Shown here is a 442-nucleotide part of an RNA from Methanobrevibacter smithii, a member of the family "Archaeal large subunit ribosomal RNA". Gene Ontology terms of the family: ribosome and structural constituent of ribosome. Pairs were carried over by alignment from the consensus structure, which is taken from published work.
[Rfam]
RNA sequence: CCACUCGAAAUGACUCUAAGGUCAGCCUGACUGGAGGUUGGUGGCGGGGUAGAGCACUAAUUGGACGUUUAGGGAGGGAAACUUCUCGGCGUACUGUAAAACUCCGAACUCGUCACCGUCGUAGAAGGUUGGAGUGAGGGGCGCGGGGUAAGCUUGUGUCCCGAAAGAGAAACAACUCAGACUAUGGUUAAGGCCCCUAAAUACUGGAUAAGUGUAAGGGAGUCUUUGGCCCAAGACAAUGGGAAGGUGGGCUUAGAAGCAGCCACCCUUUAACGAGUUCGUAACAGAUCACCCAUCGAGGUCAGAGGCACCUAAAAUGGACGGGAAUUAAUCCAGUUGCCGAUACCAUGGAACACCUUUUUUUUGGUGAUUGUGUAGAGUGGCGACCUGUGUGGGUUGAAGAGGGGGCGUGAGUUCCUUUGGACCUUGCAGGUAUGUGGAU
Numbered sequence: 001c002c003a004c005u006c007g008a009a010a011u012g013a014c015u016c017u018a019a020g021g022u023c024a025g026c027c028u029g030a031c032u033g034g035a036g037g038u039u040g041g042u043g044g045c046g047g048g049g050u051a052g053a054g055c056a057c058u059a060a061u062u063g064g065a066c067g068u069u070u071a072g073g074g075a076g077g078g079a080a081a082c083u084u085c086u087c088g089g090c091g092u093a094c095u096g097u098a099a100a101a102c103u104c105c106g107a108a109c110u111c112g113u114c115a116c117c118g119u120c121g122u123a124g125a126a127g128g129u130u131g132g133a134g135u136g137a138g139g140g141g142c143g144c145g146g147g148g149u150a151a152g153c154u155u156g157u158g159u160c161c162c163g164a165a166a167g168a169g170a171a172a173c174a175a176c177u178c179a180g181a182c183u184a185u186g187g188u189u190a191a192g193g194c195c196c197c198u199a200a201a202u203a204c205u206g207g208a209u210a211a212g213u214g215u216a217a218g219g220g221a222g223u224c225u226u227u228g229g230c231c232c233a234a235g236a237c238a239a240u241g242g243g244a245a246g247g248u249g250g251g252c253u254u255a256g257a258a259g260c261a262g263c264c265a266c267c268c269u270u271u272a273a274c275g276a277g278u279u280c281g282u283a284a285c286a287g288a289u290c291a292c293c294c295a296u297c298g299a300g301g302u303c304a305g306a307g308g309c310a311c312c313u314a315a316a317a318u319g320g321a322c323g324g325g326a327a328u329u330a331a332u333c334c335a336g337u338u339g340c341c342g343a344u345a346c347c348a349u350g351g352a353a354c355a356c357c358u359u360u361u362u363u364u365u366g367g368u369g370a371u372u373g374u375g376u377a378g379a380g381u382g383g384c385g386a387c388c389u390g391u392g393u394g395g396g397u398u399g400a401a402g403a404g405g406g407g408g409c410g411u412g413a414g415u416u417c418c419u420u421u422g423g424a425c426c427u428u429g430c431a432g433g434u435a436u437g438u439g440g441a442u
Stems, first nucleotide, its partner, number of pairs: 001383006011024005026134001027132006036120003040117008052105001053103002060097002063094001065092004072087006138162009167178003182351007192341003201338001203337006218312002222309010239296005245269003250264003275290001279288002353372001354369004384437001386434007394426002402421008